The record is a 75-nucleotide sequence from Leiothrix lutea, which matches "mir-34 microRNA precursor family" in Rfam. A search with the family's covariance model found it, with a score of 68 bits. Lineage of the source: Eukaryota > Dinosauria > Telluraves > Australaves > Leiothrix. The family has 113 seed sequences and 2,256 matches in Rfam 15.1. The family is grouped with related families in Rfam's "mir-34 clan". Its family is annotated with miRNA-mediated post-transcriptional gene silencing and RISC complex in the Gene Ontology. Rfam describes the family as follows. Human mir-34a was discovered computationally and later experimentally verified. The mature sequence is excised from the 5' arm of the hairpin. Pairs were carried over by alignment from the consensus structure, which was predicted with RNAalifold.
[Rfam]
RNA sequence: GGUUUGCAGGCAGUGUAGUUAGCUGGUUGUAUCCAUAAAAGAAUCCACAAUCACUAACUUCACUGCCAUCAGAAC
Numbered sequence: 001g002g003u004u005u006g007c008a009g010g011c012a013g014u015g016u017a018g019u020u021a022g023c024u025g026g027u028u029g030u031a032u033c034c035a036u037a038a039a040a041g042a043a044u045c046c047a048c049a050a051u052c053a054c055u056a057a058c059u060u061c062a063c064u065g066c067c068a069u070c071a072g073a074a075c
Stems, first nucleotide, its partner, number of pairs: 003073004009067002012064004017059006024053007